Nucleotides: 147
Base pairs, nucleotide, nucleotide: 001077002076003074004073005072008069011066013064016061027055028054029053030052032050033049034047035046086140087139088138089137090136091135092134094131095130099129100128101127102126103125108118109117
Number, partner (000 for none) and nucleotide at each position: 001077u002076u003074g004073g005072c006000u007000u008069c009000u010000u011066g012000a013064u014000u015000u016061a017000u018000u019000c020000u021000a022000u023000u024000c025000u026000c027055c028054g029053a030052u031000u032050a033049a034047a035046u036000u037000u038000u039000a040000u041000a042000u043000u044000u045000u046035g047034u048000g049033u050032u051000u052030g053029u054028u055027g056000u057000u058000a059000a060000u061016u062000g063000a064013a065000a066011u067000u068000u069008g070000a071000a072005g073004c074003c075000a076002a077001a078000u079000a080000u081000a082000a083000a084000a085000u086140g087139u088138u089137c090136c091135c092134c093000c094131c095130g096000c097000u098000a099129u100128c101127c102126g103125g104000u105000g106000c107000c108118u109117g110000c111000u112000u113000u114000u115000u116000a117109u118108g119000u120000u121000g122000c123000a124000u125103u126102u127101g128100g129099a130095c131094g132000u133000u134092g135091g136090g137089g138088a139087a140086c141000u142000a143000g144000g145000u146000u147000g
The family of this 147-nucleotide RNA from Morus notabilis is "Small nucleolar RNA snoR136". Gene Ontology terms of the family: RNA processing and nucleolus. A search with the family's covariance model found it, with a score of 72 bits. Rfam 15.1 lists 452 matches to the family in 212 species. The literature on the family includes a 2009 paper in Nucleic Acids Res by Chen and Wu, "Mining small RNA sequencing data: a new approach to identify small nucleolar RNAs in Arabidopsis". The family's consensus secondary structure was predicted with mfold.